This 47-nucleotide sequence from Pseudokineococcus lusitanus belongs to the Rfam family "L31-Actinobacteria ribosomal protein leader". Rfam classes the family as a cis-regulatory leader. For this family Rfam cites "Discovery of 20 novel ribosomal leader candidates in bacteria and archaea" (Eckert and Weinberg, BMC Microbiol, 2020). It scores 42 bits against the family's covariance model.
Nucleotides: 047
Base pairs, nucleotide, nucleotide: 003047004046005045007043008042009041010040015037016036017035018034019033021032022031023030
Number, partner (000 for none) and nucleotide at each position: 001000a002000g003047g004046g005045u006000c007043c008042c009041g010040g011000u012000u013000c014000a015037c016036g017035u018034g019033c020000g021032c022031g023030c024000a025000c026000c027000c028000g029000c030023g031022c032021g033019g034018c035017a036016c037015g038000a039000c040010c041009c042008g043007g044000g045005a046004c047003c